Rfam assigns this 116-nucleotide RNA sequence from Oceanisphaera arctica to the family "Ribosomal S15 leader". Its family is annotated with regulation of translation, ncRNA-mediated in the Gene Ontology. The E. coli Ribosomal S15 gene 5' UTR can form two alternative structures. Rfam classes the family as a cis-regulatory leader. Taxonomically the source falls in Oceanisphaera (Bacteria, Pseudomonadota, Aeromonadales, Aeromonadaceae). The literature on the family includes a 1996 paper in Biochimie by Benard et al., "Pseudoknot and translational control in the expression of the S15 ribosomal protein".
[Rfam]
RNA sequence: CUUUCCGGCUGAAUUAGUGAUCGGCUGGAAAAAACAUUCAUCUCUUUGGAGUACAAAAGAUGUCACUAAAUGCUGAAACCAAAGCCCAGAUCGUUGCUGACCAUGCACGUGCUGAA
Numbered sequence: 001c002u003u004u005c006c007g008g009c010u011g012a013a014u015u016a017g018u019g020a021u022c023g024g025c026u027g028g029a030a031a032a033a034a035c036a037u038u039c040a041u042c043u044c045u046u047u048g049g050a051g052u053a054c055a056a057a058a059g060a061u062g063u064c065a066c067u068a069a070a071u072g073c074u075g076a077a078a079c080c081a082a083a084g085c086c087c088a089g090a091u092c093g094u095u096g097c098u099g100a101c102c103a104u105g106c107a108c109g110u111g112c113u114g115a116a
Base pairs, nucleotide, nucleotide: 007026008025009024010023011022012021045070046069047068048067049066051064